Source information
The record is a 124-nucleotide RNA from Cnephaeus nilssonii, which matches "U4atac minor spliceosomal RNA" in Rfam. It scores 83 bits against the family's covariance model. Taxonomically the source falls in Cnephaeus (Eukaryota, Opisthokonta, Bilateria, Sarcopterygii). The literature on the family includes a 2005 paper in RNA by Lorkovic et al., "Evolutionary conservation of minor U12-type spliceosome between plants and humans". U4atac is an essential component of the minor U12-type spliceosome complex which is required for removal of the rarer class of eukaryotic introns (AT-AC, U12-type).
RNA sequence: ACCAUUCUUUUCUUGGGGUUGCACUACUAUCCAAUCAACGUCUAAUGAGGGGAGUACUGCUAACGCCUAAACAACACAUUUGCAUCAGUGGAGCUCUACUUUACCUUGGUGUAUUUUUGGAAAA
Numbered sequence: 001a002c003c004a005u006u007c008u009u010u011u012c013u014u015g016g017g018g019u020u021g022c023a024c025u026a027c028u029a030u031c032c033a034a035u036c037a038a039c040g041u042c043u044a045a046u047g048a049g050g051g052g053a054g055u056a057c058u059g060c061u062a063a064c065g066c067c068u069a070a071a072c073a074a075c076a077c078a079u080u081u082g083c084a085u086c087a088g089u090g091g092a093g094c095u096c097u098a099c100u101u102u103a104c105c106u107u108g109g110u111g112u113a114u115u116u117u118u119g120g121a122a123a124a
Stems, first nucleotide, its partner, number of pairs: 006018004021060003026055003030051003038046001082112006089103005